About this RNA
The family of this 189-nucleotide RNA sequence is "DUF2800 RNA". It is one of the family's seed sequences. Rfam classes the family as a cis-regulatory element.
RNA sequence: AGGCACAGUCAGACGGAAACCCAUCGACUGUCACCAGAUGCUGCAUCACCUGAUCACUGAUGGCUCAACGGUAUCCGGCGGUACAACUGAAUACUUGUAGCUGCCUUUUGAGCGGGUUGGCUGCAAUCCGAAACGGAGAGAUUCGUUAGGACUGCGGUUGGUCUUUUGCACCCAUUAUGCGGCUAUCUU
Numbered sequence: 001a002g003g004c005a006c007a008g009u010c011a012g013a014c015g016g017a018a019a020c021c022c023a024u025c026g027a028c029u030g031u032c033a034c035c036a037g038a039u040g041c042u043g044c045a046u047c048a049c050c051u052g053a054u055c056a057c058u059g060a061u062g063g064c065u066c067a068a069c070g071g072u073a074u075c076c077g078g079c080g081g082u083a084c085a086a087c088u089g090a091a092u093a094c095u096u097g098u099a100g101c102u103g104c105c106u107u108u109u110g111a112g113c114g115g116g117u118u119g120g121c122u123g124c125a126a127u128c129c130g131a132a133a134c135g136g137a138g139a140g141a142u143u144c145g146u147u148a149g150g151a152c153u154g155c156g157g158u159u160g161g162u163c164u165u166u167u168g169c170a171c172c173c174a175u176u177a178u179g180c181g182g183c184u185a186u187c188u189u
Stems, first nucleotide, its partner, number of pairs: 031081002034078002037075007044062005063113006098185007120158005133146005
Dot-bracket structure: ..............................((.((.((((((((((((.........)))))[[[[[[))))))).)).))................(((((((...]]]]]]......(((((........(((((....))))).......)))))....................)))))))....